The family of this 147-nucleotide sequence from Salinibacillus xinjiangensis is "FMN riboswitch aptamer (RFN element)". From the family's description: The RFN element is a highly conserved domain that is found frequently in the 5'-untranslated regions of prokaryotic mRNAs that encode for flavin mononucleotide (FMN) biosynthesis and transport proteins. This element is a metabolite-dependent riboswitch that directly binds FMN in the absence of proteins. In Bacillus subtilis, the riboswitch most likely controls gene expression by causing premature transcription termination within the 5' untranslated region of the ribDEAHT operon and precluding access to the ribosome-binding site of ypaA mRNA.The FMN riboswitch structure, reported in present an FMN-bound six-stem junction, adopts a butterfly-like scaffold, stapled together by opposingly directed but nearly identically folded peripheral domains.
RNA sequence: GAAUUCCUUCGGGGUCGGGUGUAAUUCCCAACCGACGGUGAUGGAGGUAUAACCUCCUUAGUCCGUGACCCGUGAGACAUUUGUCGAACGGUGGACCUGGUGAAAAUCCGGGACCGACAGUGAAAGUCUGGAUGGGAGAAGGAAAAC
Numbered sequence: 001g002a003a004u005u006c007c008u009u010c011g012g013g014g015u016c017g018g019g020u021g022u023a024a025u026u027c028c029c030a031a032c033c034g035a036c037g038g039u040g041a042u043g044g045a046g047g048u049a050u051a052a053c054c055u056c057c058u059u060a061g062u063c064c065g066u067g068a069c070c071c072g073u074g075a076g077a078c079a080u081u082u083g084u085c086g087a088a089c090g091g092u093g094g095a096c097c098u099g100g101u102g103a104a105a106a107u108c109c110g111g112g113a114c115c116g117a118c119a120g121u122g123a124a125a126g127u128c129u130g131g132a133u134g135g136g137a138g139a140a141g142g143a144a145a146a147c
Stems, first nucleotide, its partner, number of pairs: 004144007017029003031127002033116002035066004061114002070091002096112005118130003